[Rfam]
RNA sequence: AAUCCAUGCAAAUCAGGUAAGCCAGGAUAGGGAAAUCCGCGGAUUUCCCUAUCCUGGCUUACCUGAUUUGCAUGGAUU
Numbered sequence: 001a002a003u004c005c006a007u008g009c010a011a012a013u014c015a016g017g018u019a020a021g022c023c024a025g026g027a028u029a030g031g032g033a034a035a036u037c038c039g040c041g042g043a044u045u046u047c048c049c050u051a052u053c054c055u056g057g058c059u060u061a062c063c064u065g066a067u068u069u070g071c072a073u074g075g076a077u078u
Stems, first nucleotide, its partner, number of pairs: 002077004007072006014065009024055010
The family of this 78-nucleotide sequence from Pelodiscus sinensis is "mir-26 microRNA precursor family". Rfam 15.1 lists 2,251 matches to the family in 645 species. The literature on the family includes a 2001 paper in Science by Lagos-Quintana et al., "Identification of novel genes coding for small expressed RNAs". Taxonomically the source falls in Pelodiscus (Eukaryota, Deuterostomia, Sauria, Trionychidae). Its family is annotated with miRNA-mediated post-transcriptional gene silencing and RISC complex in the Gene Ontology. The match comes from Rfam's covariance-model search (58 bits). The family's consensus secondary structure was predicted with RNAalifold.